RNA sequence: CGCACUUUGAUCUGUAAGUCGCUCUGGAUAAAAGCAUCUGCUAAAUACCUGUAA
Numbered sequence: 001c002g003c004a005c006u007u008u009g010a011u012c013u014g015u016a017a018g019u020c021g022c023u024c025u026g027g028a029u030a031a032a033a034g035c036a037u038c039u040g041c042u043a044a045a046u047a048c049c050u051g052u053a054a
Stems, first nucleotide, its partner, number of pairs: 013043001014041003021035003025031001
UnaL2 LINE 3' element: a 54-nucleotide RNA sequence from Albula goreensis. For this family Rfam cites "Solution structure of an RNA stem-loop derived from the 3' conserved region of eel LINE UnaL2" (Baba et al., RNA, 2004). The family's RNA type in Rfam is cis-regulatory element. The match comes from Rfam's covariance-model search (56 bits). From the family's description: The eel long interspersed element (LINE) UnaL2 and its partner short interspersed element (SINE) share a conserved 3' tail containing a stem-loop that is critical for their retrotransposition. Presumably, the first step of retrotransposition is the recognition of their 3' tails by UnaL2-encoded reverse transcriptase. The solution structure of a 17-nucleotide RNA derived from the 3' tail of UnaL2 was determined by NMR.